[Rfam]
RNA sequence: AACAGCAGUCAGCCUAAUCCAGGAAUUGAUUCCUGAAGCGGAGGAACCACGUUUGGGGCGUAUCUCAGUGUAGAGAAGGACAUCUCUCAGUCCUAGCCCGUCAGCUAACUUCGUCGGCAUUGAGGGGAGACUCA
Number, nucleotide and partner (000 for none) at each position: 001a000002a000003c000004a000005g000006c000007a000008g000009u000010c000011a000012g118013c117014c116015u000016a000017a000018u037019c000020c035021a034022g033023g032024a031025a000026u000027u000028g000029a000030u000031u024032c023033c022034u021035g020036a000037a018038g114039c113040g112041g111042a110043g109044g000045a000046a000047c000048c055049a054050c000051g000052u000053u000054u049055g048056g099057g098058g097059c000060g000061u000062a000063u000064c075065u074066c073067a000068g000069u000070g000071u000072a000073g066074a065075g064076a000077a000078g093079g092080a091081c090082a000083u000084c000085u000086c000087u000088c000089a000090g081091u080092c079093c078094u000095a000096g000097c058098c057099c056100g000101u000102c000103a000104g000105c000106u000107a000108a000109c043110u042111u041112c040113g039114u038115c000116g014117g013118c012119a000120u000121u000122g000123a000124g000125g000126g000127g000128a000129g000130a000131c000132u000133c000134a000
Rfam assigns this 134-nucleotide RNA sequence from Pseudanabaenaceae cyanobacterium LEGE 13415 to the family "c-di-AMP riboswitch aptamer (ydaO/yuaA leader)".
The source organism's lineage runs through Bacteria, Bacillati, Cyanobacteriota, Pseudanabaenales and Pseudanabaenaceae.